[Rfam]
RNA sequence: AAUAGUGAAAUCUUUCGAAUCGUUUCCCGCUAAAGCCAUGCUAUGCGGGGGCGAUCUGAGCAAAGGCUCACAGGGUCGGCAUAGAAAUGUACCGGCCUCCCGUAAAUGCGGCAUCCUGUUCAGGAUACGGCAGGAAAGAAAGGUGCAAAGACCCAGU
Numbered sequence: 001a002a003u004a005g006u007g008a009a010a011u012c013u014u015u016c017g018a019a020u021c022g023u024u025u026c027c028c029g030c031u032a033a034a035g036c037c038a039u040g041c042u043a044u045g046c047g048g049g050g051g052c053g054a055u056c057u058g059a060g061c062a063a064a065g066g067c068u069c070a071c072a073g074g075g076u077c078g079g080c081a082u083a084g085a086a087a088u089g090u091a092c093c094g095g096c097c098u099c100c101c102g103u104a105a106a107u108g109c110g111g112c113a114u115c116c117u118g119u120u121c122a123g124g125a126u127a128c129g130g131c132a133g134g135a136a137a138g139a140a141a142g143g144u145g146c147a148a149a150g151a152c153c154c155a156g157u
Stems, first nucleotide, its partner, number of pairs: 003151001006148001011143006019055008028047003034042003057070005073098007081090003099134002

A member of the RNA family "Molybdenum/Tungsten riboswitch aptamer (Moco RNA motif)" from Desulfitobacterium hafniense, 157 nucleotides long. The base pairs follow the family's consensus structure, which is taken from published work. It scores 63 bits against the family's covariance model. The organism belongs to Desulfitobacterium hafniense, within Bacteria. The literature on the family includes a 2008 paper in Mol Microbiol by Regulski et al., "in molybdenum cofactor and tungsten cofactor metabolism".